RNA sequence: CCCCAAUGUUCUUUGUCAGGAUCCCAUCCUUUUUCUUCCAGUGGUGGUGGUCUGUUAUAACAUUGGGAGAUUGACUGCCUUUGUCGACUGUUGCAACCUCGUGUUGUCAACUGAUGUGUUCCGUUUUGGAUACCGUCAUGAGAAAGGCUGCGUGUCAGAUUUGAGUUGAAGUAUACCUAUGCCGUUCUUUCUGGCAUUGAUUGUACGCUUCUUAGUGAUGACACAUACAUAA
Numbered sequence: 001c002c003c004c005a006a007u008g009u010u011c012u013u014u015g016u017c018a019g020g021a022u023c024c025c026a027u028c029c030u031u032u033u034u035c036u037u038c039c040a041g042u043g044g045u046g047g048u049g050g051u052c053u054g055u056u057a058u059a060a061c062a063u064u065g066g067g068a069g070a071u072u073g074a075c076u077g078c079c080u081u082u083g084u085c086g087a088c089u090g091u092u093g094c095a096a097c098c099u100c101g102u103g104u105u106g107u108c109a110a111c112u113g114a115u116g117u118g119u120u121c122c123g124u125u126u127u128g129g130a131u132a133c134c135g136u137c138a139u140g141a142g143a144a145a146g147g148c149u150g151c152g153u154g155u156c157a158g159a160u161u162u163g164a165g166u167u168g169a170a171g172u173a174u175a176c177c178u179a180u181g182c183c184g185u186u187c188u189u190u191c192u193g194g195c196a197u198u199g200a201u202u203g204u205a206c207g208c209u210u211c212u213u214a215g216u217g218a219u220g221a222c223a224c225a226u227a228c229a230u231a232a
Base pairs, nucleotide, nucleotide: 003066004065005064006063007062019053020052021051022050023049024047025046026045027044028043075150077148078147079146080145081110082109083108085106086105087104088103090097091096113137114136115135116134121129122128123127152226153225154224155223159219160218168211169210170209171208174205175204176203179197180196181195182194183193184192
Dot-bracket structure: ..(((((...........((((((((((..............))))).)))))........)))))........(.(((((((.((((.((....)).....)))).)))..((((....(((...)))....)))).......)))).).((((...((.......((((..(((..((((((.......)))))).....)))..))))......))...))))......
Rfam assigns this 232-nucleotide RNA sequence from Neonectria ditissima to the family "Small nucleolar RNA snR191". Rfam links the family to the GO terms nucleolus and RNA processing. The family's consensus secondary structure was predicted with WAR. A search with the family's covariance model found it, with a score of 52 bits.